[Rfam]
RNA: DUF3800-VI RNA
RNA sequence: GAGUCGGGAGCGCUGACCUUUUUGCAGUGCGCCAGGGGUCUUACCCUGCCCGGCUU
Numbered sequence: 001g002a003g004u005c006g007g008g009a010g011c012g013c014u015g016a017c018c019u020u021u022u023u024g025c026a027g028u029g030c031g032c033c034a035g036g037g038g039u040c041u042u043a044c045c046c047u048g049c050c051c052g053g054c055u056u
Base pairs, nucleotide, nucleotide: 001056002055003054004053005052006051007050008049010030011029012028013027014026015025017024033048034047035046036045037044